Background: The record is a 180-nucleotide RNA sequence from Candidatus Izimoplasma sp. ZiA1, which matches "Lysine riboswitch aptamer" in Rfam. The match comes from Rfam's covariance-model search (71 bits). The organism belongs to Candidatus Izemoplasma, within Bacteria. The literature on the family includes a 2003 paper in Cell by Mandal et al., "Riboswitches Control Fundamental Biochemical Pathways in Bacillus subtilis and Other Bacteria". Rfam links the family to the GO term lysine biosynthetic process. The family has 47 seed sequences and 3,224 matches in Rfam 15.1.
[Rfam]
RNA sequence: AAAGACAACAGAGGAGCAAGUUUUUGGUAGUUUAAAGGUGUUAAUAAGAAGAUACCUUAAAAACUUUAAACGAAGGAGAAAUUUGCCGAAAGAUUUAGUUAGAUCUUGAAUUAAAUCUUGAUGAUUAGAGGGACGCUUUAAUCAUUGCCAUUUAAUAAAAAAUGGAGAGCUGUUUAUACA
Numbered sequence: 001a002a003a004g005a006c007a008a009c010a011g012a013g014g015a016g017c018a019a020g021u022u023u024u025u026g027g028u029a030g031u032u033u034a035a036a037g038g039u040g041u042u043a044a045u046a047a048g049a050a051g052a053u054a055c056c057u058u059a060a061a062a063a064c065u066u067u068a069a070a071c072g073a074a075g076g077a078g079a080a081a082u083u084u085g086c087c088g089a090a091a092g093a094u095u096u097a098g099u100u101a102g103a104u105c106u107u108g109a110a111u112u113a114a115a116u117c118u119u120g121a122u123g124a125u126u127a128g129a130g131g132g133a134c135g136c137u138u139u140a141a142u143c144a145u146u147g148c149c150a151u152u153u154a155a156u157a158a159a160a161a162a163u164g165g166a167g168a169g170c171u172g173u174u175u176a177u178a179c180a
Stems, first nucleotide, its partner, number of pairs: 007174005016086009030071008090119011120146011148165006